[Rfam]
Nucleotides: 076
Base pairs, nucleotide, nucleotide: 013046015044016043017042022075023074024073025072026071028040048065049064050063051062052061053060054059
Number, partner (000 for none) and nucleotide at each position: 001000u002000g003000g004000g005000g006000g007000a008000a009000u010000u011000u012000u013046g014000a015044g016043g017042c018000c019000a020000u021000a022075a023074u024073a025072g026071a027000a028040g029000c030000a031000c032000u033000c034000a035000c036000a037000g038000c039000a040028c041000a042017g043016c044015c045000a046013c047000u048065c049064a050063g051062a052061u053060u054059c055000u056000g057000a058000u059054g060053a061052a062051u063050c064049u065048g066000c067000a068000a069000a070000a071026u072025c073024u074023g075022u076000c
A member of the RNA family "Mammalian CPEB3 ribozyme" from Crocodylus porosus, 76 nucleotides long. A search with the family's covariance model found it, with a score of 43 bits. Gene Ontology term of the family: RNA nuclease activity. The base pairs follow the family's consensus structure, which is taken from published work.